The family of this 137-nucleotide RNA sequence from Monodelphis domestica is "Small nucleolar RNA SNORD10". On this family, see Huttenhofer et al., EMBO J 2001: "RNomics: an experimental approach that identifies 201 candidates for novel, small, non-messenger RNAs in mouse". It is one of the family's seed sequences. The family's consensus secondary structure was predicted with WAR.
RNA sequence: GCUCUGUGAUGAUCCCCCAUGCGUGUCAUCUGAGCUCAGCUUCCCCUGAUCUCUCAGUUCCAAGUGGGUGUUUUGCCCUCUGGUCUCUGGGCUGGCAGUGGCUUCUGGGCACAUGAUCAUAAUUUAACCCUGAGAGC
Numbered sequence: 001g002c003u004c005u006g007u008g009a010u011g012a013u014c015c016c017c018c019a020u021g022c023g024u025g026u027c028a029u030c031u032g033a034g035c036u037c038a039g040c041u042u043c044c045c046c047u048g049a050u051c052u053c054u055c056a057g058u059u060c061c062a063a064g065u066g067g068g069u070g071u072u073u074u075g076c077c078c079u080c081u082g083g084u085c086u087c088u089g090g091g092c093u094g095g096c097a098g099u100g101g102c103u104u105c106u107g108g109g110c111a112c113a114u115g116a117u118c119a120u121a122a123u124u125u126a127a128c129c130c131u132g133a134g135a136g137c
Stems, first nucleotide, its partner, number of pairs: 001137004044100001046098003051095002